[Rfam]
RNA: Plastid-psbA-4 3UTR RNA
RNA sequence: AAUAAAGGAGCAAUAGCCAAUUUCUUCUUAUAUCAAGAAGAUUGUUAUUGCUCCUUUAU
Numbered sequence: 001a002a003u004a005a006a007g008g009a010g011c012a013a014u015a016g017c018c019a020a021u022u023u024c025u026u027c028u029u030a031u032a033u034c035a036a037g038a039a040g041a042u043u044g045u046u047a048u049u050g051c052u053c054c055u056u057u058a059u
Base pairs, nucleotide, nucleotide: 004057005056006055007054008053009052010051011050012049013048014047015046019042022039023038024037025036026035